[Rfam]
RNA sequence: UUGGGUUGCUGAAUUAGAGAUCGGCGCCUGUCUUAAUUUAUCUAUAUAUUUGGAGUUGUAUCAUGUCUCUAAGUGUUGAAGCGAAAGCUAAAAUUGUUGCUGACUUCGGUCGCGAUGCC
Numbered sequence: 001u002u003g004g005g006u007u008g009c010u011g012a013a014u015u016a017g018a019g020a021u022c023g024g025c026g027c028c029u030g031u032c033u034u035a036a037u038u039u040a041u042c043u044a045u046a047u048a049u050u051u052g053g054a055g056u057u058g059u060a061u062c063a064u065g066u067c068u069c070u071a072a073g074u075g076u077u078g079a080a081g082c083g084a085a086a087g088c089u090a091a092a093a094u095u096g097u098u099g100c101u102g103a104c105u106u107c108g109g110u111c112g113c114g115a116u117g118c119c
Stems, first nucleotide, its partner, number of pairs: 007026006049073007
Shown here is a 119-nucleotide sequence from Yersinia enterocolitica, a member of the family "Ribosomal S15 leader". Rfam links the family to the GO term regulation of translation, ncRNA-mediated. Rfam's curators write: The E. coli Ribosomal S15 gene 5' UTR can form two alternative structures. One that is a series of three hairpins, The other includes a pseudoknot. On this family, see Benard et al., Biochimie 1996: "Pseudoknot and translational control in the expression of the S15 ribosomal protein". It is one of the family's seed sequences.